This 38-nucleotide RNA sequence from Halalkalibacter oceani belongs to the Rfam family "Ribosomal protein L19 leader". The match comes from Rfam's covariance-model search (43 bits). Gene Ontology term of the family: regulation of gene expression. The literature on the family includes a 1994 paper in Prog Nucleic Acid Res Mol Biol by Zengel and Lindahl, "Diverse mechanisms for regulating ribosomal protein synthesis in Escherichia coli". The organism belongs to Halalkalibacter, within Bacteria. The family's consensus secondary structure was predicted with CMfinder.
[Rfam]
RNA sequence: ACGAUGUUCCGCUGCAGGCAGCCUGUUAUGAGCAUCUG
Numbered sequence: 001a002c003g004a005u006g007u008u009c010c011g012c013u014g015c016a017g018g019c020a021g022c023c024u025g026u027u028a029u030g031a032g033c034a035u036c037u038g
Base pairs, nucleotide, nucleotide: 003036004035005034006033007032008031009030013028014027015025016024017023018022
Dot-bracket structure: ..(((((((...((((((...)))).)).)))))))..

Rfam classes the family as a cis-regulatory leader.